[Rfam]
RNA sequence: UUUUCAUCAAGAGUGGUGGAGGGACAGGCCCGAUGAAACCCGGCAACCUGCAUGUCAAGUGCGAGGUGCCAAUUCCUGCAGAAUCCAAUCUGUUGAUUCUGGGAGAUGAAUG
Numbered sequence: 001u002u003u004u005c006a007u008c009a010a011g012a013g014u015g016g017u018g019g020a021g022g023g024a025c026a027g028g029c030c031c032g033a034u035g036a037a038a039c040c041c042g043g044c045a046a047c048c049u050g051c052a053u054g055u056c057a058a059g060u061g062c063g064a065g066g067u068g069c070c071a072a073u074u075c076c077u078g079c080a081g082a083a084u085c086c087a088a089u090c091u092g093u094u095g096a097u098u099c100u101g102g103g104a105g106a107u108g109a110a111u112g
Stems, first nucleotide, its partner, number of pairs: 001112001003110006013041001015040003021031003025078004042070004047066002049063004074104001079101006
RNA: SAM riboswitch aptamer (S box leader)
Organism: Brevibacillus panacihumi